[Rfam]
RNA sequence: AGGCAGCCUACUUGCUAAGAUUAAAUGGCAUGAAAGGUGUUUAACUACUCAUAAAUAAAAUGCUUUUGCUCUUCAGACUUGCUGAGAUUUUUUCUCUGAAGUUGGUCUAGUAAGCUUUAGUACAUU
Numbered sequence: 001a002g003g004c005a006g007c008c009u010a011c012u013u014g015c016u017a018a019g020a021u022u023a024a025a026u027g028g029c030a031u032g033a034a035a036g037g038u039g040u041u042u043a044a045c046u047a048c049u050c051a052u053a054a055a056u057a058a059a060a061u062g063c064u065u066u067u068g069c070u071c072u073u074c075a076g077a078c079u080u081g082c083u084g085a086g087a088u089u090u091u092u093u094c095u096c097u098g099a100a101g102u103u104g105g106u107c108u109a110g111u112a113a114g115c116u117u118u119a120g121u122a123c124a125u126u
Base pairs, nucleotide, nucleotide: 002041003040004039005038007037008036009034011032013030014029015028016027017026063120064119068115069114070113075108076107077106078105079104081102082101083100086094087093
RNA: Small nucleolar RNA snoR77
Organism: Trifolium medium